[Rfam]
Nucleotides: 057
Stems, first nucleotide, its partner, number of pairs: 002054004007049004013043006021037004
Number, partner (000 for none) and nucleotide at each position: 001000g002054g003053c004052a005051g006000u007049u008048u009047u010046g011000u012000a013043u014042g015041a016040u017039g018038u019000u020000a021037c022036u023035u024034c025000u026000g027000a028000u029000g030000a031000a032000c033000u034024g035023a036022a037021g038018a039017c040016a041015u042014c043013a044000g045000a046010u047009a048008a049007a050000u051005c052004u053003g054002u055000g056000c057000u
The record is a 57-nucleotide sequence from Gadus morhua, which matches "mir-723 microRNA precursor family" in Rfam.
The base pairs follow the family's consensus structure, which was predicted with RNAalifold.